The family of this 33-nucleotide sequence from Atopococcus tabaci is "L31-Firmicutes ribosomal protein leader". Lineage of the source: Bacteria > Bacillati > Lactobacillales > Atopococcus > Atopococcus tabaci.

RNA sequence: CUCUGGUACAAAAAUGGACCAGGGCAUAAGGAG
Numbered sequence: 001c002u003c004u005g006g007u008a009c010a011a012a013a014a015u016g017g018a019c020c021a022g023g024g025c026a027u028a029a030g031g032a033g
Stems, first nucleotide, its partner, number of pairs: 001024007

The literature on the family includes a 2020 paper in BMC Microbiol by Eckert and Weinberg, "Discovery of 20 novel ribosomal leader candidates in bacteria and archaea".
Its Rfam clan is "Ribosomal Protein L31 Leader clan".